[Rfam]
Nucleotides: 091
Stems, first nucleotide, its partner, number of pairs: 001091001003089003
Number, partner (000 for none) and nucleotide at each position: 001091g002000c003089u004088g005087u006000u007000g008000g009000g010000u011000g012000a013000u014000g015000a016000g017000g018000c019000u020000c021000u022000g023000g024000a025000a026000u027000g028000a029000g030000u031000g032000c033000u034000g035000g036000g037000c038000a039000c040000a041000g042000u043000g044000c045000c046000c047000g048000a049000g050000u051000c052000g053000g054000g055000c056000u057000g058000c059000a060000g061000a062000a063000a064000c065000a066000u067000c068000c069000c070000g071000u072000a073000c074000u075000g076000c077000c078000c079000u080000c081000c082000u083000g084000a085000g086000a087005g088004c089003a090000u091001c
Annotation
Shown here is a 91-nucleotide RNA from Myotis myotis, a member of the family "Small nucleolar RNA U83B". Rfam describes the family as follows. U83B belongs to the C/D family of snoRNAs. U83B like U83A has no documented RNA target and they share the same host gene with the C/D box snoRNA U43 (RPL3). N.B. U83A/B/C have no sequence similarity with the U83 snoRNA that was cloned by Jady and Kiss (2000). Taxonomically the source falls in Myotis (Eukaryota, Eumetazoa, Tetrapoda, Mammalia). Pairs were carried over by alignment from the consensus structure. Gene Ontology terms of the family: nucleolus and RNA processing. The family's RNA type in Rfam is C/D-box small nucleolar RNA. On this family, see Jady and Kiss, Nucleic Acids Res 2000: "Characterisation of the U83 and U84 small nucleolar RNAs: two novel 2'-O-ribose methylation guide RNAs that lack complementarities to ribosomal RNAs".